[Rfam]
RNA sequence: CUCUGAUUCCCAAGUUGAAUCAGGGCGGAAAGAG
Numbered sequence: 001c002u003c004u005g006a007u008u009c010c011c012a013a014g015u016u017g018a019a020u021c022a023g024g025g026c027g028g029a030a031a032g033a034g
Stems, first nucleotide, its partner, number of pairs: 001025008

L31-Firmicutes ribosomal protein leader: a 34-nucleotide sequence from Thermicanus aegyptius. Its Rfam clan is "Ribosomal Protein L31 Leader clan". It is one of the family's seed sequences. Pairs were carried over by alignment from the consensus structure, which is taken from published work. The family's RNA type in Rfam is cis-regulatory leader.